Source information:
This 89-nucleotide sequence from Calypte anna belongs to the Rfam family "Small nucleolar SNORD12/SNORD106". Rfam 15.1 lists 2,264 matches to the family in 650 species. Rfam classes the family as a C/D-box small nucleolar RNA. The match comes from Rfam's covariance-model search (72 bits). The family is grouped with related families in Rfam's "SNORD12 clan".

RNA sequence: GCUGGUGUGAGUGAUGACAGUUUUUUCCCCGUCAGAGCGACAGUGUUGAUCUGUCACUGUUCAAGCCAGAUUAUAUCUGAUGCACCAGA
Number, nucleotide and partner (000 for none) at each position: 001g000002c088003u087004g086005g085006u084007g083008u082009g081010a000011g000012u000013g000014a000015u000016g000017a000018c000019a000020g000021u000022u000023u000024u000025u000026u000027c000028c000029c000030c000031g000032u000033c000034a000035g000036a000037g000038c000039g000040a000041c000042a000043g000044u000045g000046u000047u000048g000049a000050u000051c000052u000053g000054u000055c000056a000057c000058u000059g000060u000061u000062c000063a000064a000065g000066c000067c000068a000069g000070a000071u000072u000073a000074u000075a000076u000077c000078u000079g000080a000081u009082g008083c007084a006085c005086c004087a003088g002089a000

A reference for the family is Huttenhofer et al. (2001), "RNomics: an experimental approach that identifies 201 candidates for novel, small, non-messenger RNAs in mouse", EMBO J.